The family of this 568-nucleotide part of an RNA from Prevotella nigrescens is "Bacterial small subunit ribosomal RNA". The base pairs follow the family's consensus structure, which is taken from published work. It is one of the family's seed sequences.
[Rfam]
RNA sequence: ACAAUGGAGAGUUUGAUCCUGGCUCAGGAUGAACGCUGGCUACAGGCUUAACACAUGCAAGUCGUGGGGAAACGGCAUUAUGUGCUUGCACAUUCUGGACGUCGACCGGCGCACGGGUGAGUAUCGCGUAUCCAACCUGCCCCUUACUUGGGGAUACCCCGUUGAAAGACGGCCUAAUACCCGAUGUGUUUCAUUGACGGCAUCCGAUAUGAAACAAAGGUUUUCCGGUAAGGGAUGGGGAUGCGUCUGAUUAGCUAGUUGGCGGGGCAACGGCCCACCAAGGCGACGAUCAGUAGGGGUUCUGAGAGGAAGGUCCCCCACAUUGGAACUGAGACACGGUCCAAACUCCUACGGGAGGCAGCAGUGAGGAAUAUUGGUCAAUGGACGCAAGUCUGAACCAGCCAAGUAGCGUGCAGGAUGACGGCCCUAUGGGUUGUAAACUGCUUUUAUGUGGGAAUAAAUUGGCGCACGUGUGCGCCAUUGCAUGUACCUCAUGAAUAAGGACCGGCUAAUUCCGUGCCAGCAGCCGCGGUAAUACGGAAGGUCCGGGCGUUAUCCGGAUUUAUUG
Dot-bracket structure: ........(((((.......))))).((((.((((((.(((((.(((....(((.(((..(((..((.((.........(((((....)))))........))..)))))......(((......((((((((..((...(((((((.((((......(((((....))))).......)))).....((((((....(....)....))))))....((....)).)))))))..))))))))))(((....(((..((((.(((.......))).)))))))......)))..((((((((....))))...))))))).(((((............))))).((((....))))...)))))).).....(.(((...(((((....))))).)))).))..)))))..((((......((((.....)))).....))))....(((.((...(.....(((..........))).....)....)).)))......(((((......(((((.....((....)).......)))))))))).))))))))))..........
Numbered sequence: 001a002c003a004a005u006g007g008a009g010a011g012u013u014u015g016a017u018c019c020u021g022g023c024u025c026a027g028g029a030u031g032a033a034c035g036c037u038g039g040c041u042a043c044a045g046g047c048u049u050a051a052c053a054c055a056u057g058c059a060a061g062u063c064g065u066g067g068g069g070a071a072a073c074g075g076c077a078u079u080a081u082g083u084g085c086u087u088g089c090a091c092a093u094u095c096u097g098g099a100c101g102u103c104g105a106c107c108g109g110c111g112c113a114c115g116g117g118u119g120a121g122u123a124u125c126g127c128g129u130a131u132c133c134a135a136c137c138u139g140c141c142c143c144u145u146a147c148u149u150g151g152g153g154a155u156a157c158c159c160c161g162u163u164g165a166a167a168g169a170c171g172g173c174c175u176a177a178u179a180c181c182c183g184a185u186g187u188g189u190u191u192c193a194u195u196g197a198c199g200g201c202a203u204c205c206g207a208u209a210u211g212a213a214a215c216a217a218a219g220g221u222u223u224u225c226c227g228g229u230a231a232g233g234g235a236u237g238g239g240g241a242u243g244c245g246u247c248u249g250a251u252u253a254g255c256u257a258g259u260u261g262g263c264g265g266g267g268c269a270a271c272g273g274c275c276c277a278c279c280a281a282g283g284c285g286a287c288g289a290u291c292a293g294u295a296g297g298g299g300u301u302c303u304g305a306g307a308g309g310a311a312g313g314u315c316c317c318c319c320a321c322a323u324u325g326g327a328a329c330u331g332a333g334a335c336a337c338g339g340u341c342c343a344a345a346c347u348c349c350u351a352c353g354g355g356a357g358g359c360a361g362c363a364g365u366g367a368g369g370a371a372u373a374u375u376g377g378u379c380a381a382u383g384g385a386c387g388c389a390a391g392u393c394u395g396a397a398c399c400a401g402c403c404a405a406g407u408a409g410c411g412u413g414c415a416g417g418a419u420g421a422c423g424g425c426c427c428u429a430u431g432g433g434u435u436g437u438a439a440a441c442u443g444c445u446u447u448u449a450u451g452u453g454g455g456a457a458u459a460a461a462u463u464g465g466c467g468c469a470c471g472u473g474u475g476c477g478c479c480a481u482u483g484c485a486u487g488u489a490c491c492u493c494a495u496g497a498a499u500a501a502g503g504a505c506c507g508g509c510u511a512a513u514u515c516c517g518u519g520c521c522a523g524c525a526g527c528c529g530c531g532g533u534a535a536u537a538c539g540g541a542a543g544g545u546c547c548g549g550g551c552g553u554u555a556u557c558c559g560g561a562u563u564u565a566u567u568g
Stems, first nucleotide, its partner, number of pairs: 009025005027558004032554006039410005045403002047368001052366003056363003061110003066107002069103002080093005117321003126246008136238002141234007149183004159172005189214006199204001219226002247293003254284003259281004264276003296318004300311004323344005346357004374400001376399003382395005413444004423435004449495003453491002458485001464479003502547005513542005523530002